[Rfam]
RNA: U12 minor spliceosomal RNA
RNA sequence: AUCCAUUAAACUUAUGAGUAAGGAAAAUAACAAUUUGAGAUGACGCCAGAAUCUUCACUGCUAAUGUGAGAUGAAUUUGUGACUGGAUACAGGUUGCCCCUAAGCUGAUCUGCCUACUUGGUAUCAUGCCUGGAGUCACGAUCUGCACGUCCC
Numbered sequence: 001a002u003c004c005a006u007u008a009a010a011c012u013u014a015u016g017a018g019u020a021a022g023g024a025a026a027a028u029a030a031c032a033a034u035u036u037g038a039g040a041u042g043a044c045g046c047c048a049g050a051a052u053c054u055u056c057a058c059u060g061c062u063a064a065u066g067u068g069a070g071a072u073g074a075a076u077u078u079g080u081g082a083c084u085g086g087a088u089a090c091a092g093g094u095u096g097c098c099c100c101u102a103a104g105c106u107g108a109u110c111u112g113c114c115u116a117c118u119u120g121g122u123a124u125c126a127u128g129c130c131u132g133g134a135g136u137c138a139c140g141a142u143c144u145g146c147a148c149g150u151c152c153c
Base pairs, nucleotide, nucleotide: 004023006021007020008019033052034051035050036049039046054070055069056068057067058066085152086151087150088149091144092143093142094141095140096139100133101132103131104130106128107127111123112122113121